This 200-nucleotide RNA from Geodia barretti belongs to the Rfam family "U2 spliceosomal RNA". Clan: U2 clan. The literature on the family includes a 1997 paper in Nucleic Acids Res by Zwieb, "The uRNA database". Taxonomically the source falls in Geodia (Eukaryota, Opisthokonta, Tetractinellida, Astrophorina).
RNA sequence: AUUUUUUGUAUGUGCGGCAUGCCCUGCCACUUGAAAAUGGAUUUUUUGAACUGUUCUUACCAGUGUAAUAUCUGGUACGCAGGCAAUGCCUGCUCGAUAUUACAUCAAUUUUUGAGCCAGGAGGGAUGGCCUGGGGCUUGCUCCACCUCCCUCAGGGGUUGCCCUAGUCUUGCACUGUUGCUAGUGGCAGCCCAUCCCCU
Dot-bracket structure: ..((((((.......................))))))....................((((((........)))))).((((((...))))))...........................((((((.(....((((....)))).).))))))..((((((..(((((...........)))))...)))))).......